[Rfam]
RNA: ilvB-OMG RNA
Organism: Parahaliea mediterranea
RNA sequence: GUCUUACAGGUGGCAACGGCUAACGUUGAGUACCCUCAACCCCUGGCCCACUGCCGCGAUGCGAUGAUUCGCGCCAGCUGCCUGUGAGUCCCGUAACCAGCCAGAGCCGCAUGGGCCGGGCUGGGGGCCAGAUACUGCGCUACCCCGCAGGGCGACCGAUACACGGGUUCGUGAUCGCUUUCCCCUUCCUCGCCAGCCAUGGCGAGCGUG
Numbered sequence: 001g002u003c004u005u006a007c008a009g010g011u012g013g014c015a016a017c018g019g020c021u022a023a024c025g026u027u028g029a030g031u032a033c034c035c036u037c038a039a040c041c042c043c044u045g046g047c048c049c050a051c052u053g054c055c056g057c058g059a060u061g062c063g064a065u066g067a068u069u070c071g072c073g074c075c076a077g078c079u080g081c082c083u084g085u086g087a088g089u090c091c092c093g094u095a096a097c098c099a100g101c102c103a104g105a106g107c108c109g110c111a112u113g114g115g116c117c118g119g120g121c122u123g124g125g126g127g128c129c130a131g132a133u134a135c136u137g138c139g140c141u142a143c144c145c146c147g148c149a150g151g152g153c154g155a156c157c158g159a160u161a162c163a164c165g166g167g168u169u170c171g172u173g174a175u176c177g178c179u180u181u182c183c184c185c186u187u188c189c190u191c192g193c194c195a196g197c198c199a200u201g202g203c204g205a206g207c208g209u210g
Stems, first nucleotide, its partner, number of pairs: 018048005025040006051077003055073005060067001088128002091126002097119002100116003104112001150183003155179001157177004162173004191204005